Description:
A member of the RNA family "Hepatitis C virus (HCV) cis-acting replication element (CRE)" from Orthohepacivirus hominis, 165 nucleotides long. On this family, see Pirakitikulr et al., Mol Cell 2016: "The Coding Region of the HCV Genome Contains a Network of Regulatory RNA Structures". Gene Ontology term of the family: viral genome replication.
[Rfam]
RNA sequence: CCAUUGCCCGAGGCGAGCCGCCUGGAUUUAUCCGGAUGGUUCACCGUGGGCGCCGGCGGGGGCGACAUCUUUCACAGCGUGUCGCAUGCCCGACCCCGCCUAUUACUCCUUUGCCUACUCCUACUCAGCGUAGGGGUAGGCAUCUUUUUACUCCCCGCUCGGUAG
Numbered sequence: 001c002c003a004u005u006g007c008c009c010g011a012g013g014c015g016a017g018c019c020g021c022c023u024g025g026a027u028u029u030a031u032c033c034g035g036a037u038g039g040u041u042c043a044c045c046g047u048g049g050g051c052g053c054c055g056g057c058g059g060g061g062g063c064g065a066c067a068u069c070u071u072u073c074a075c076a077g078c079g080u081g082u083c084g085c086a087u088g089c090c091c092g093a094c095c096c097c098g099c100c101u102a103u104u105a106c107u108c109c110u111u112u113g114c115c116u117a118c119u120c121c122u123a124c125u126c127a128g129c130g131u132a133g134g135g136g137u138a139g140g141c142a143u144c145u146u147u148u149u150a151c152u153c154c155c156c157g158c159u160c161g162g163u164a165g
Base pairs, nucleotide, nucleotide: 006051007050008049009048010047012045013044016041017040018039019038020037022035023034024033025032026031055100056099057098058097059096060095061094062085063084064083065082066081067080112142113141114140115139116138117137118136119135120134121133122132123131124130